The family of this 49-nucleotide sequence from Rhizobium sp. Leaf306 is "Guanidine-II riboswitch aptamer (mini-ykkC)". Rfam links the family to the GO term regulation of gene expression.
RNA sequence: GAGAGAGGACGACCUCCCCCUGAAUGGGCAUAACGCCGGGACGACCCGG
Numbered sequence: 001g002a003g004a005g006a007g008g009a010c011g012a013c014c015u016c017c018c019c020c021u022g023a024a025u026g027g028g029c030a031u032a033a034c035g036c037c038g039g040g041a042c043g044a045c046c047c048g049g
Stems, first nucleotide, its partner, number of pairs: 001020001003018001005016004036049005